[Rfam]
The family of this 177-nucleotide sequence from Pseudoleptotrichia goodfellowii is "Lysine riboswitch aptamer".
A search with the family's covariance model found it, with a score of 116 bits.
Its family is annotated with lysine biosynthetic process in the Gene Ontology.
The base pairs follow the family's consensus structure, which is taken from published work.

RNA sequence: CACAAAGAUAGAGGUGCGAUUAUUAAGAGUAAAUUUAUGGAGAACAGUCAAUUCGGCGAAGUAAAUUGAAAGGAAUAAUUGCCGAAGAACAAAGAUUGACUGGCUUUGUUACUGGGGCUGCGGAGAAUAUCCGUAGAACUGUCAUUAUCUUAACGAUAAUGGUGAGCUGUCAGAUAU
Numbered sequence: 001c002a003c004a005a006a007g008a009u010a011g012a013g014g015u016g017c018g019a020u021u022a023u024u025a026a027g028a029g030u031a032a033a034u035u036u037a038u039g040g041a042g043a044a045c046a047g048u049c050a051a052u053u054c055g056g057c058g059a060a061g062u063a064a065a066u067u068g069a070a071a072g073g074a075a076u077a078a079u080u081g082c083c084g085a086a087g088a089a090c091a092a093a094g095a096u097u098g099a100c101u102g103g104c105u106u107u108g109u110u111a112c113u114g115g116g117g118c119u120g121c122g123g124a125g126a127a128u129a130u131c132c133g134u135a136g137a138a139c140u141g142u143c144a145u146u147a148u149c150u151u152a153a154c155g156a157u158a159a160u161g162g163u164g165a166g167c168u169g170u171c172a173g174a175u176a177u
Stems, first nucleotide, its partner, number of pairs: 007171005016082009032067007086113002088109001090108005114140002118136007142162007